[Rfam]
RNA sequence: UGGCGUCCGAACAGGGACCUGGACAUGGGGGAAGAAGUGAGGAAGAAGGCACUAAAGUUGGCCAAAAGUGAAAGUGGAAGAAAAACUCCUCCGGACGUCACGGGAACCUGCUGCAUUGGAACCAGAGGUAAGUAAUAGUGUCUGAUUAUGGGACAAGAAUUAAGCCAGCAUCAAAUUUAUGUAGGGCAAUUAAAAGAGGCUUUAAAAACACGAGGAGUAAAGGUUAAAAGUAAUGAUUUGUUUAAGUUUUUUGAUUUUGUAAAAGAAACCUGCCCUU
Numbered sequence: 001u002g003g004c005g006u007c008c009g010a011a012c013a014g015g016g017a018c019c020u021g022g023a024c025a026u027g028g029g030g031g032a033a034g035a036a037g038u039g040a041g042g043a044a045g046a047a048g049g050c051a052c053u054a055a056a057g058u059u060g061g062c063c064a065a066a067a068g069u070g071a072a073a074g075u076g077g078a079a080g081a082a083a084a085a086c087u088c089c090u091c092c093g094g095a096c097g098u099c100a101c102g103g104g105a106a107c108c109u110g111c112u113g114c115a116u117u118g119g120a121a122c123c124a125g126a127g128g129u130a131a132g133u134a135a136u137a138g139u140g141u142c143u144g145a146u147u148a149u150g151g152g153a154c155a156a157g158a159a160u161u162a163a164g165c166c167a168g169c170a171u172c173a174a175a176u177u178u179a180u181g182u183a184g185g186g187c188a189a190u191u192a193a194a195a196g197a198g199g200c201u202u203u204a205a206a207a208a209c210a211c212g213a214g215g216a217g218u219a220a221a222g223g224u225u226a227a228a229a230g231u232a233a234u235g236a237u238u239u240g241u242u243u244a245a246g247u248u249u250u251u252u253g254a255u256u257u258u259g260u261a262a263a264a265g266a267a268a269c270c271u272g273c274c275c276u277u
Stems, first nucleotide, its partner, number of pairs: 006032003013026001015024001038046001087130001089128001090126002096118001101113003136156001138154002141152004161204003164200003211253008221239006262277002265274001